[Rfam]
Archaeal RNase P: a 280-nucleotide sequence from Nitrososphaera viennensis.
The organism belongs to Nitrososphaera viennensis, within Archaea.
The family is grouped with related families in Rfam's "RNaseP clan".
Rfam describes the family as follows. Ribonuclease P (RNase P) is a ubiquitous endoribonuclease, found in archaea, bacteria and eukarya as well as chloroplasts and mitochondria. Its best characterised activity is the generation of mature 5'-ends of tRNAs by cleaving the 5'-leader elements of precursor-tRNAs. Cellular RNase Ps are ribonucleoproteins. RNA from bacterial RNase Ps retains its catalytic activity in the absence of the protein subunit, i.e. it is a ribozyme. Isolated eukaryotic and archaeal RNase P RNA has not been shown to retain its catalytic function, but is still essential for the catalytic activity of the holoenzyme. Although the archaeal and eukaryotic holoenzymes have a much greater protein content than the bacterial ones, the RNA cores from all the three lineages are homologous -- helices corresponding to P1, P2, P3, P4, and P10/11 are common to all cellular RNase P RNAs. Yet, there is considerable sequence variation, particularly among the eukaryotic RNAs.
The family's consensus secondary structure is taken from published work.
The literature on the family includes a 1998 paper in Annu Rev Biochem by Frank and Pace, "Ribonuclease P: unity and diversity in a tRNA processing ribozyme".
It is annotated as a ribozyme.

RNA sequence: GCGAGCCAGCGGGCGGGCGACUCAAAAGAGAGGAAACUCCUCCCUCGCUGCAGGCACCCGAAUUGGCGACAAUUAGCCGGAGACGGCUGGCGACGGAACAGAAAAGAGAUCCGGUCGGGGCGAUACCGUGAUGGCGAAAGCCUGAGGUUUCCGAUACCGGAAUGAAACUGCCGACCCGGGUGGAGCAAGGCCAAACAGAGCACAAGGGUCCUGCACCUGCUCAGGUUGGCUGCUCAGCGGAAUCCCGCCUAGAACAGAAGGAGGGUUACGGCUGGCACGC
Numbered sequence: 001g002c003g004a005g006c007c008a009g010c011g012g013g014c015g016g017g018c019g020a021c022u023c024a025a026a027a028g029a030g031a032g033g034a035a036a037c038u039c040c041u042c043c044c045u046c047g048c049u050g051c052a053g054g055c056a057c058c059c060g061a062a063u064u065g066g067c068g069a070c071a072a073u074u075a076g077c078c079g080g081a082g083a084c085g086g087c088u089g090g091c092g093a094c095g096g097a098a099c100a101g102a103a104a105a106g107a108g109a110u111c112c113g114g115u116c117g118g119g120g121c122g123a124u125a126c127c128g129u130g131a132u133g134g135c136g137a138a139a140g141c142c143u144g145a146g147g148u149u150u151c152c153g154a155u156a157c158c159g160g161a162a163u164g165a166a167a168c169u170g171c172c173g174a175c176c177c178g179g180g181u182g183g184a185g186c187a188a189g190g191c192c193a194a195a196c197a198g199a200g201c202a203c204a205a206g207g208g209u210c211c212u213g214c215a216c217c218u219g220c221u222c223a224g225g226u227u228g229g230c231u232g233c234u235c236a237g238c239g240g241a242a243u244c245c246c247g248c249c250u251a252g253a254a255c256a257g258a259a260g261g262a263g264g265g266u267u268a269c270g271g272c273u274g275g276c277a278c279g280c
Stems, first nucleotide, its partner, number of pairs: 001280003005276005010270002012249006021030003035267003039264005044185003053212002056181005061074005075088005089176002094173003110161003114155003118152003133142002189231004198222005